[Rfam]
RNA sequence: AAAAUGCACAGAGGUUGCGGAUCGCAUCAGUAUUCGUCCCGCAAGGCCGCCGAUCCAUAUGAGCGGGAAGAAAAAAGGGCCAUUCGCCGAAAGCCUGUUUGUUCGGCAAGCGAGCAGGCUUGGACGCAUGCUUCGAAAGGGCUGCGACUGUCACACGGCCCCGGGCGGUGUGGUGCGCUGUGCAAUAU
Numbered sequence: 001a002a003a004a005u006g007c008a009c010a011g012a013g014g015u016u017g018c019g020g021a022u023c024g025c026a027u028c029a030g031u032a033u034u035c036g037u038c039c040c041g042c043a044a045g046g047c048c049g050c051c052g053a054u055c056c057a058u059a060u061g062a063g064c065g066g067g068a069a070g071a072a073a074a075a076a077g078g079g080c081c082a083u084u085c086g087c088c089g090a091a092a093g094c095c096u097g098u099u100u101g102u103u104c105g106g107c108a109a110g111c112g113a114g115c116a117g118g119c120u121u122g123g124a125c126g127c128a129u130g131c132u133u134c135g136a137a138a139g140g141g142c143u144g145c146g147a148c149u150g151u152c153a154c155a156c157g158g159c160c161c162c163g164g165g166c167g168g169u170g171u172g173g174u175g176c177g178c179u180g181u182g183c184a185a186u187a188u
Stems, first nucleotide, its partner, number of pairs: 006183006017087006024080002033072003037068006091121012122149002125146004130142004151173006
The record is a 188-nucleotide sequence from Anaerofilum sp. An201, which matches "Lysine riboswitch aptamer" in Rfam. Riboswitches are metabolite binding domains within certain messenger RNAs that serve as precision sensors for their corresponding targets. Taxonomically the source falls in Anaerofilum (Bacteria, Bacillota, Clostridia, Eubacteriales).